Source information: Small nucleolar RNA Z152/R70/R12/: a 108-nucleotide RNA sequence from Phaseolus vulgaris. Rfam links the family to the GO terms RNA processing and nucleolus. Lineage of the source: Eukaryota > Viridiplantae > eudicotyledons > Papilionoideae > Phaseolus. The family's consensus secondary structure was predicted with PFOLD.
RNA sequence: GGUGUUAUGAUGAGAUGAAGCACCGAAGUGUGUUUGGGCAGUAGACAUAAUCACAUGGUUUCGCCCGUGAGCCUUCAAUUUUAACGACUUCUCCUUCCACUGAGCACC
Numbered sequence: 001g002g003u004g005u006u007a008u009g010a011u012g013a014g015a016u017g018a019a020g021c022a023c024c025g026a027a028g029u030g031u032g033u034u035u036g037g038g039c040a041g042u043a044g045a046c047a048u049a050a051u052c053a054c055a056u057g058g059u060u061u062c063g064c065c066c067g068u069g070a071g072c073c074u075u076c077a078a079u080u081u082u083a084a085c086g087a088c089u090u091c092u093c094c095u096u097c098c099a100c101u102g103a104g105c106a107c108c
Stems, first nucleotide, its partner, number of pairs: 001108005
Rfam classes the family as a C/D-box small nucleolar RNA.